[Rfam]
RNA sequence: GAUAUGCGUUGAAGCGGGAGGUUGCUAUCCCAGAGAUAGGUAAUUUCCGCCGAGUAUGUCCGAUUUUAAACCGGGCGGCUU
Number, nucleotide and partner (000 for none) at each position: 001g000002a000003u000004a000005u000006g000007c000008g000009u000010u000011g000012a000013a000014g050015c049016g048017g000018g047019a046020g045021g044022u000023u000024g000025c039026u038027a037028u036029c035030c000031c000032a000033g000034a000035g029036a028037u027038a026039g025040g000041u000042a000043a000044u021045u020046u019047c018048c016049g015050c014051c000052g000053a000054g000055u000056a000057u000058g079059u078060c077061c000062g000063a000064u075065u074066u073067u000068a000069a000070a000071c000072c000073g066074g065075g064076c000077g060078g059079c058080u000081u000
RNA: S10-Clostridia ribosomal protein leader
Organism: Clostridium sp. CAG:169